[Rfam]
RNA sequence: CUGUAGCCACUUUGAGUUACGAUAAUUACUAUGUUAAUUUACGAGAUUAUAGUAACUCCUUACUAAAUAGUUUACUAUAACGUUAUGAUAAAUAUCUCAUGUUUUAUAGUAACCCAACUAUCGUAAAUAUGUAUUGACAUUAUUGUAAAUUAGUAUAUAAAAUUAUCGUAAAUAGAAGUGGCUACAG
Numbered sequence: 001c002u003g004u005a006g007c008c009a010c011u012u013u014g015a016g017u018u019a020c021g022a023u024a025a026u027u028a029c030u031a032u033g034u035u036a037a038u039u040u041a042c043g044a045g046a047u048u049a050u051a052g053u054a055a056c057u058c059c060u061u062a063c064u065a066a067a068u069a070g071u072u073u074a075c076u077a078u079a080a081c082g083u084u085a086u087g088a089u090a091a092a093u094a095u096c097u098c099a100u101g102u103u104u105u106a107u108a109g110u111a112a113c114c115c116a117a118c119u120a121u122c123g124u125a126a127a128u129a130u131g132u133a134u135u136g137a138c139a140u141u142a143u144u145g146u147a148a149a150u151u152a153g154u155a156u157a158u159a160a161a162a163u164u165a166u167c168g169u170a171a172a173u174a175g176a177a178g179u180g181g182c183u184a185c186a187g
Stems, first nucleotide, its partner, number of pairs: 001187013017171011030157013045144003049140002054134001060126004067121006073111008082102002087096002
Dot-bracket structure: (((((((((((((...(((((((((((..(((((((((((((..(((.((...(.....((((...((((((((((((((.((...((......))....)).))))))))....)))))).)))).......)....)).))))))))))))))))...)))))))))))...)))))))))))))